Shown here is a 405-nucleotide RNA sequence from Rugositalea oryzae, a member of the family "Bacterial RNase P class A". A search with the family's covariance model found it, with a score of 290 bits. Ribonuclease P (RNase P) is a ubiquitous endoribonuclease, found in archaea, bacteria and eukarya as well as chloroplasts and mitochondria. The family's RNA type in Rfam is ribozyme. NCBI's taxonomy places the organism under Bacteria, Pseudomonadati, Alphaproteobacteria, Nitrobacteraceae, Rugositalea.
RNA sequence: UCAGUCGGCCGGACGGCCGCUCCGCGCCAAUGCCGAAAGGCGGCCGGGGAGGAAAGUCCGGGCUCCAGGACAAACGGUGCCGGAUAACUUCCGGCGGGGGCGACCCCAGGGACAGUGCCACAGAGAACAGACCGCCGCGGCGCGUAGCGUGUUGGCCGCGGCAAGGGUGAAACGGUGCGGUAAGAGCGCACCGCGCUUCCGGCGACGGCAGCGGCACGGCAAACCCCACCGGGAGCAAGACCGAAUAGGGACGGCAACGGGGCGAAAGCCCCAACCCUUGUCCGGGUCGCCGUCCGGGUAGGUUGCUUCAGGCGCCGGGCAACCGGCGUCGCAGAGGAAUGGCCGUCACGUGUGCGGUGAAAGCCGCGCGCCAUACAGAACCCGGCUUACAGGCCGUCUGAUUUG
Numbered sequence: 001u002c003a004g005u006c007g008g009c010c011g012g013a014c015g016g017c018c019g020c021u022c023c024g025c026g027c028c029a030a031u032g033c034c035g036a037a038a039g040g041c042g043g044c045c046g047g048g049g050a051g052g053a054a055a056g057u058c059c060g061g062g063c064u065c066c067a068g069g070a071c072a073a074a075c076g077g078u079g080c081c082g083g084a085u086a087a088c089u090u091c092c093g094g095c096g097g098g099g100g101c102g103a104c105c106c107c108a109g110g111g112a113c114a115g116u117g118c119c120a121c122a123g124a125g126a127a128c129a130g131a132c133c134g135c136c137g138c139g140g141c142g143c144g145u146a147g148c149g150u151g152u153u154g155g156c157c158g159c160g161g162c163a164a165g166g167g168u169g170a171a172a173c174g175g176u177g178c179g180g181u182a183a184g185a186g187c188g189c190a191c192c193g194c195g196c197u198u199c200c201g202g203c204g205a206c207g208g209c210a211g212c213g214g215c216a217c218g219g220c221a222a223a224c225c226c227c228a229c230c231g232g233g234a235g236c237a238a239g240a241c242c243g244a245a246u247a248g249g250g251a252c253g254g255c256a257a258c259g260g261g262g263c264g265a266a267a268g269c270c271c272c273a274a275c276c277c278u279u280g281u282c283c284g285g286g287u288c289g290c291c292g293u294c295c296g297g298g299u300a301g302g303u304u305g306c307u308u309c310a311g312g313c314g315c316c317g318g319g320c321a322a323c324c325g326g327c328g329u330c331g332c333a334g335a336g337g338a339a340u341g342g343c344c345g346u347c348a349c350g351u352g353u354g355c356g357g358u359g360a361a362a363g364c365c366g367c368g369c370g371c372c373a374u375a376c377a378g379a380a381c382c383c384g385g386c387u388u389a390c391a392g393g394c395c396g397u398c399u400g401a402u403u404u405g
Base pairs, nucleotide, nucleotide: 001401002400003399004398006396007395008394009393010392011390012347013346014345015344016343017342018341020049021048022047023046024045027042054388055387056386058385059384060383061382062381063235064234065233066232072281075231076230077229078228079227080094081093082092083091084090095109096107097106098105099104110226111225115224116223117220118219119218132166133165134162135161136160137159138158139157140156141155174192175191176190177189178188179187193215194213195212196211197210199208200207201206239304240303241302242301249295250294251293252292253291254290276286277285278284311330312329313328314327315326316325317324318323